Rfam assigns this 99-nucleotide RNA from Azohydromonas caseinilytica to the family "traJ-II RNA". The source organism's lineage runs through Bacteria, Pseudomonadota, Betaproteobacteria, Burkholderiales and Azohydromonas. The family's RNA type in Rfam is cis-regulatory element. The family has 47 seed sequences and 174 matches in Rfam 15.1. A search with the family's covariance model found it, with a score of 66 bits.
RNA sequence: GGGCAGGAUAGGUGAACAUGGCCAUGUCGCGGAGCGACCUGACCCUGUUCACUUCCCCUUACUCGCUGCGCUCGACGGGGCAUCCUGCGCUGCGCGGUU
Numbered sequence: 001g002g003g004c005a006g007g008a009u010a011g012g013u014g015a016a017c018a019u020g021g022c023c024a025u026g027u028c029g030c031g032g033a034g035c036g037a038c039c040u041g042a043c044c045c046u047g048u049u050c051a052c053u054u055c056c057c058c059u060u061a062c063u064c065g066c067u068g069c070g071c072u073c074g075a076c077g078g079g080g081c082a083u084c085c086u087g088c089g090c091u092g093c094g095c096g097g098u099u
Stems, first nucleotide, its partner, number of pairs: 001090001003088007012052006020044002024040001026038004055080004065071002
Dot-bracket structure: (.(((((((..((((((..((..(.((((.....)))).)..))..))))))..((((......((...)).....)))).))))))).).........